SAM riboswitch aptamer (S box leader): a 117-nucleotide sequence from Hymenobacter sedentarius.
The base pairs follow the family's consensus structure, which is taken from published work.
Its family is annotated with regulation of gene expression in the Gene Ontology.
RNA sequence: GUUUUAUAGAGAAGCGGCGAGAGACUAGGCUCUGUGACCCGCUGGCAACCUUCGACCGCGCGAAAGGUGCCAAGUCCUACCCACCACCGGCGCAGGCCGGGGCGGGGCAUAUGAAUC
Dot-bracket structure: (.((((((....(((((...(((..[[[[)))......)))))((((.((((((......)))).))))))...(]]]](((.((...............)).)))..))))))).)